Rfam assigns this 72-nucleotide RNA sequence from Vicugna pacos to the family "Small nucleolar RNA SNORD113/SNORD114 family". Its Rfam clan is "SNORD74 clan". NCBI's taxonomy places the organism under Eukaryota, Chordata, Teleostomi, Eutheria, Vicugna. Pairs were carried over by alignment from the consensus structure, which is taken from published work. By type it is a C/D-box small nucleolar RNA.
[Rfam]
RNA sequence: UGGGCCAGUGAUGACAACUGGUGACAUGUGUCUUGGAUGAUGAAAAUACAUGUCUGAAACUCUGAGAUCCAA
Numbered sequence: 001u002g003g004g005c006c007a008g009u010g011a012u013g014a015c016a017a018c019u020g021g022u023g024a025c026a027u028g029u030g031u032c033u034u035g036g037a038u039g040a041u042g043a044a045a046a047u048a049c050a051u052g053u054c055u056g057a058a059a060c061u062c063u064g065a066g067a068u069c070c071a072a
Stems, first nucleotide, its partner, number of pairs: 002070003006066001
The imprinted human domain at 14q32 contains two clusters of tandemly repeated small nucleolar RNAs named 14q(I) and 14q(II) snoRNAs. These two clusters are named SNORD113 and SNORD114 respectively in the HGNC approved gene symbol nomenclature.